[Rfam]
RNA: Iron response element II
RNA sequence: UCUAUAUCGGAGACAGUGUUCUCCAUAUGUU
Numbered sequence: 001u002c003u004a005u006a007u008c009g010g011a012g013a014c015a016g017u018g019u020u021c022u023c024c025a026u027a028u029g030u031u
Stems, first nucleotide, its partner, number of pairs: 003029005009024005014018001